[Rfam]
RNA sequence: GGGUACGCUCUAUCUGAAGGAAACCUGGUAACAGUGAGCGUCUCACAGAUAGAUACCGUCCCUGAGCAAAACUAUCAAAUUGCCGGAAACCCCUAAAGCCCAAGGUACCGCGGGAGGCGUGAAAACGGCUCUGCAGCAGUAGGCCGAAAGGUCUAUGGAUGGUAAUAACCCAAGGGAUUAAAACUAUUAGUCAAACGUGGGUAUUGAUGAGUCCUCUGCUCAUCUUAAGACGAUAAGAGAAUUACGUCAUACUCAAGAGAUGAAAUAGCUAUGGUUCAUCUAUGAAAAUAGGUGAACUCCUGUAAAAGCAGGAAUGGGCAAUCGGCAGCCAAGGCGCCUGGAUGAGACUCUUAGAGUAUCCGACGCUGCAGUUCACCGACUAAAUGGUAGUUGGUGGGCUCAAUAUGCAACUUAUGGACGGCUUGAUGUCGUUGAGUAUGGAACCUAAAAGAUCAUUGCAGUGGUAAAAAUUAACACUUCUAUGAGAGUUAACCUUAAGGCUUCAUAUAUGUUAAAAACUUUCCAAUAUGGAAUUAAAUGGUCACGCAAGGUUGGGAUUGGGACCCCAACCUUGGAGAGGACCAUAGAGGAAAGUUUGCAUUUAUGAAUGAGACGAUUACAUCCGGGUAUUAUCUCCAAUACUUUUUAGGGCUAAUCGUAGUUAAACUCGAAUUAAUGAGGGACCAACUGCAUCGUCUUUCAAGUCAUUUAAGGUGUAAGAUCGGGUAAGCAGACCCGACACCAGCUUAAAUGAUAGGUGACCGCAAUUUAGGGUAAUAUUAUCCUAUCCAUUUGUAUAAUUAUUGAGGCUGCUUAAGAUAUAGUCGAUAGACACCCGAAAAGGCAGU
Numbered sequence: 001g002g003g004u005a006c007g008c009u010c011u012a013u014c015u016g017a018a019g020g021a022a023a024c025c026u027g028g029u030a031a032c033a034g035u036g037a038g039c040g041u042c043u044c045a046c047a048g049a050u051a052g053a054u055a056c057c058g059u060c061c062c063u064g065a066g067c068a069a070a071a072c073u074a075u076c077a078a079a080u081u082g083c084c085g086g087a088a089a090c091c092c093c094u095a096a097a098g099c100c101c102a103a104g105g106u107a108c109c110g111c112g113g114g115a116g117g118c119g120u121g122a123a124a125a126c127g128g129c130u131c132u133g134c135a136g137c138a139g140u141a142g143g144c145c146g147a148a149a150g151g152u153c154u155a156u157g158g159a160u161g162g163u164a165a166u167a168a169c170c171c172a173a174g175g176g177a178u179u180a181a182a183a184c185u186a187u188u189a190g191u192c193a194a195a196c197g198u199g200g201g202u203a204u205u206g207a208u209g210a211g212u213c214c215u216c217u218g219c220u221c222a223u224c225u226u227a228a229g230a231c232g233a234u235a236a237g238a239g240a241a242u243u244a245c246g247u248c249a250u251a252c253u254c255a256a257g258a259g260a261u262g263a264a265a266u267a268g269c270u271a272u273g274g275u276u277c278a279u280c281u282a283u284g285a286a287a288a289u290a291g292g293u294g295a296a297c298u299c300c301u302g303u304a305a306a307a308g309c310a311g312g313a314a315u316g317g318g319c320a321a322u323c324g325g326c327a328g329c330c331a332a333g334g335c336g337c338c339u340g341g342a343u344g345a346g347a348c349u350c351u352u353a354g355a356g357u358a359u360c361c362g363a364c365g366c367u368g369c370a371g372u373u374c375a376c377c378g379a380c381u382a383a384a385u386g387g388u389a390g391u392u393g394g395u396g397g398g399c400u401c402a403a404u405a406u407g408c409a410a411c412u413u414a415u416g417g418a419c420g421g422c423u424u425g426a427u428g429u430c431g432u433u434g435a436g437u438a439u440g441g442a443a444c445c446u447a448a449a450a451g452a453u454c455a456u457u458g459c460a461g462u463g464g465u466a467a468a469a470a471u472u473a474a475c476a477c478u479u480c481u482a483u484g485a486g487a488g489u490u491a492a493c494c495u496u497a498a499g500g501c502u503u504c505a506u507a508u509a510u511g512u513u514a515a516a517a518a519c520u521u522u523c524c525a526a527u528a529u530g531g532a533a534u535u536a537a538a539u540g541g542u543c544a545c546g547c548a549a550g551g552u553u554g555g556g557a558u559u560g561g562g563a564c565c566c567c568a569a570c571c572u573u574g575g576a577g578a579g580g581a582c583c584a585u586a587g588a589g590g591a592a593a594g595u596u597u598g599c600a601u602u603u604a605u606g607a608a609u610g611a612g613a614c615g616a617u618u619a620c621a622u623c624c625g626g627g628u629a630u631u632a633u634c635u636c637c638a639a640u641a642c643u644u645u646u647u648a649g650g651g652c653u654a655a656u657c658g659u660a661g662u663u664a665a666a667c668u669c670g671a672a673u674u675a676a677u678g679a680g681g682g683a684c685c686a687a688c689u690g691c692a693u694c695g696u697c698u699u700u701c702a703a704g705u706c707a708u709u710u711a712a713g714g715u716g717u718a719a720g721a722u723c724g725g726g727u728a729a730g731c732a733g734a735c736c737c738g739a740c741a742c743c744a745g746c747u748u749a750a751a752u753g754a755u756a757g758g759u760g761a762c763c764g765c766a767a768u769u770u771a772g773g774g775u776a777a778u779a780u781u782a783u784c785c786u787a788u789c790c791a792u793u794u795g796u797a798u799a800a801u802u803a804u805u806g807a808g809g810c811u812g813c814u815u816a817a818g819a820u821a822u823a824g825u826c827g828a829u830a831g832a833c834a835c836c837c838g839a840a841a842a843g844g845c846a847g848u
Base pairs, nucleotide, nucleotide: 014027016025070392071391072390073389074388076386077385081327082326083325084324085323086322091318092317093316328372329371333367334366335365336364341360342359343358344357376827378826379825380824381823382822394813395812396811397810399808400807401806402805403804404803405802835844836843
RNA: Group I catalytic intron
Organism: Gigaspora rosea